[Rfam]
RNA sequence: UUAACUCAAAUUUGUACGGAGUUGGAACGUUUGCCCACGUUUGCCACUAGGGGCGCUGUUUCAACUGCAUACUUUUAGUUA
Numbered sequence: 001u002u003a004a005c006u007c008a009a010a011u012u013u014g015u016a017c018g019g020a021g022u023u024g025g026a027a028c029g030u031u032u033g034c035c036c037a038c039g040u041u042u043g044c045c046a047c048u049a050g051g052g053g054c055g056c057u058g059u060u061u062c063a064a065c066u067g068c069a070u071a072c073u074u075u076u077a078g079u080u081a
Stems, first nucleotide, its partner, number of pairs: 008075003014072003018068001020066010034052003039047002
Rfam assigns this 81-nucleotide RNA from Bombyx mori to the family "mir-2807 microRNA precursor family". A reference for the family is Liu et al. (2010), "MicroRNAs of Bombyx mori identified by Solexa sequencing", BMC Genomics. The family has 8 seed sequences and 5,120 matches in Rfam 15.1. Pairs were carried over by alignment from the consensus structure, which was predicted with RNAalifold. Rfam links the family to the GO terms RISC complex and miRNA-mediated post-transcriptional gene silencing.